[Rfam]
RNA sequence: CGUGCAUUCCAUCCAGAAGGGCGGAGCAAGCCACUGGAAGCGAGUCUUGCAUGGGUCUUGGCGACAAGAUUUGUGAAGCGUAGACAGCGGGUACAAAAGCCGCGUUAUUGAGCCCCGAAAAAUUCAUAUUGCAUGAGGCUUUCACUUUCGUGAUAGUGGGAGCGGUCGUAUACGCACGCCAGGCGAGUGCGAAUACCUCGGCCGGGGUCGGAGAGCG
Numbered sequence: 001c002g003u004g005c006a007u008u009c010c011a012u013c014c015a016g017a018a019g020g021g022c023g024g025a026g027c028a029a030g031c032c033a034c035u036g037g038a039a040g041c042g043a044g045u046c047u048u049g050c051a052u053g054g055g056u057c058u059u060g061g062c063g064a065c066a067a068g069a070u071u072u073g074u075g076a077a078g079c080g081u082a083g084a085c086a087g088c089g090g091g092u093a094c095a096a097a098a099g100c101c102g103c104g105u106u107a108u109u110g111a112g113c114c115c116c117g118a119a120a121a122a123u124u125c126a127u128a129u130u131g132c133a134u135g136a137g138g139c140u141u142u143c144a145c146u147u148u149c150g151u152g153a154u155a156g157u158g159g160g161a162g163c164g165g166u167c168g169u170a171u172a173c174g175c176a177c178g179c180c181a182g183g184c185g186a187g188u189g190c191g192a193a194u195a196c197c198u199c200g201g202c203c204g205g206g207g208u209c210g211g212a213g214a215g216c217g
Stems, first nucleotide, its partner, number of pairs: 012038005020032003026184002040088002044085004048080002050075011109211001110209001112208006134200004138163003143158004168196004173191005